[Rfam]
RNA sequence: AUAAAAGCUGUCUAGGGUUCCGUUGACGGCAGUGAGGCGAGUUGUAACAGGAGGCUUGCCCAUUGCAAUCAGGUCUGGUCCAAGAGACGGCGUACAGGAGGCGUCAGCAGCAGCGGCGUGAACUGUAUCACACGGAAGGAUAAAAGCCUGGGAGAU
Numbered sequence: 001a002u003a004a005a006a007g008c009u010g011u012c013u014a015g016g017g018u019u020c021c022g023u024u025g026a027c028g029g030c031a032g033u034g035a036g037g038c039g040a041g042u043u044g045u046a047a048c049a050g051g052a053g054g055c056u057u058g059c060c061c062a063u064u065g066c067a068a069u070c071a072g073g074u075c076u077g078g079u080c081c082a083a084g085a086g087a088c089g090g091c092g093u094a095c096a097g098g099a100g101g102c103g104u105c106a107g108c109a110g111c112a113g114c115g116g117c118g119u120g121a122a123c124u125g126u127a128u129c130a131c132a133c134g135g136a137a138g139g140a141u142a143a144a145a146g147c148c149u150g151g152g153a154g155a156u
Base pairs, nucleotide, nucleotide: 007091008090009089010088011087012086015081016080020078021077022075023072024071025070026069092129093127094126095125096124097123131151133154137149138148139147

Description: The family of this 156-nucleotide sequence from Paenibacillus abyssi is "Guanidine-I riboswitch aptamer". The match comes from Rfam's covariance-model search (67 bits).